[Rfam]
Shown here is a 164-nucleotide RNA sequence from Pelagicoccus enzymogenes, a member of the family "Group II catalytic intron D1-D4-3".
RNA sequence: GGAAUCGCGAGGUUUCGUGGGAAGGAAGCCUACGUCAAAGGUGCGGGCCUACGAACAGAAACGGGAUAUAAGGCCGGUAUGGCGGGUGAGCUGGCACAACGCAGCGAAACCCUCAGUUCAGCCAUGCAGGUAAAUCCCGAGGUCGCGCAUCGAAACAGCGUGCU
Numbered sequence: 001g002g003a004a005u006c007g008c009g010a011g012g013u014u015u016c017g018u019g020g021g022a023a024g025g026a027a028g029c030c031u032a033c034g035u036c037a038a039a040g041g042u043g044c045g046g047g048c049c050u051a052c053g054a055a056c057a058g059a060a061a062c063g064g065g066a067u068a069u070a071a072g073g074c075c076g077g078u079a080u081g082g083c084g085g086g087u088g089a090g091c092u093g094g095c096a097c098a099a100c101g102c103a104g105c106g107a108a109a110c111c112c113u114c115a116g117u118u119c120a121g122c123c124a125u126g127c128a129g130g131u132a133a134a135u136c137c138c139g140a141g142g143u144c145g146c147g148c149a150u151c152g153a154a155a156c157a158g159c160g161u162g163c164u
Base pairs, nucleotide, nucleotide: 001016002015003014004013005012006011032164036160040151041150042149043148044147045146046144047143048142049141050140062139063138064137065136066135067134073131074130075129077127078126079125080124081123082122083121084112085111086110087109090105091104092103093102
A search with the family's covariance model found it, with a score of 127 bits.
NCBI's taxonomy places the organism under Bacteria, Pseudomonadati, Opitutia, Puniceicoccales, Pelagicoccus.
Rfam links the family to the GO term Group II intron splicing.